[Rfam]
RNA sequence: GUACAAAAACAGGGGAGCUUGUGAUAGCGGGCUGAGAGGAAGUAAGACAACUUCGACCCUUUACCUGAUGCGGAUAAUGCCGCCGUAGGAAGUCAGAGUUGAUUUUUU
Numbered sequence: 001g002u003a004c005a006a007a008a009a010c011a012g013g014g015g016a017g018c019u020u021g022u023g024a025u026a027g028c029g030g031g032c033u034g035a036g037a038g039g040a041a042g043u044a045a046g047a048c049a050a051c052u053u054c055g056a057c058c059c060u061u062u063a064c065c066u067g068a069u070g071c072g073g074a075u076a077a078u079g080c081c082g083c084c085g086u087a088g089g090a091a092g093u094c095a096g097a098g099u100u101g102a103u104u105u106u107u108u
Stems, first nucleotide, its partner, number of pairs: 009093002011060004017032005039054005064089004070083004
This 108-nucleotide RNA from [Eubacterium] brachy belongs to the Rfam family "TPP riboswitch aptamer (THI element)". A search with the family's covariance model found it, with a score of 62 bits. The family's consensus secondary structure is taken from published work.